Rfam assigns this 87-nucleotide RNA sequence from Bacillus yapensis to the family "BsrC". The base pairs follow the family's consensus structure, which was predicted with CMfinder. About the family: The 301 nucleotide sequence from Kouji Nakamura has been trimmed to a highly conserved ~85 nucleotide long core to form this family. Rfam 15.1 lists 572 matches to the family in 553 species. Lineage of the source: Bacteria > Bacillota > Bacilli > Caryophanales > Bacillus.

RNA sequence: UCGACCUAAAACAACGAAAGCCCUACCUCUCUCUCGUCAUUACGGUUCCGAGACCGCGCCGGUGUGAAUUAGGAUAUUCAUAGUUCU
Numbered sequence: 001u002c003g004a005c006c007u008a009a010a011a012c013a014a015c016g017a018a019a020g021c022c023c024u025a026c027c028u029c030u031c032u033c034u035c036g037u038c039a040u041u042a043c044g045g046u047u048c049c050g051a052g053a054c055c056g057c058g059c060c061g062g063u064g065u066g067a068a069u070u071a072g073g074a075u076a077u078u079c080a081u082a083g084u085u086c087u
Stems, first nucleotide, its partner, number of pairs: 034067003040061001041058001043056005
For this family Rfam cites "Novel small RNA-encoding genes in the intergenic regions of Bacillus subtilis" (Saito et al., Gene, 2008). By type it is a small RNA.